Notes:
The family of this 97-nucleotide sequence from Lachnospiraceae bacterium G41 is "SAM riboswitch aptamer (S box leader)". Taxonomically the source falls in Lachnospiraceae (Bacteria, Bacillati, Bacillota, Lachnospirales). The match comes from Rfam's covariance-model search (73 bits).
[Rfam]
RNA sequence: CUCUUAUUCAGAGUGGUGGAGGUACAUAGGACCUGUGAAGCCACGGCAACCCCUACAAGGAAGGUGCCAACCUGAGCGAGAAAUCGAACAAUAAGAG
Dot-bracket structure: ((((((((....(((((...(((...[..[)))......)))))((((.(((((...)))..))))))....]..](((....)))...))))))))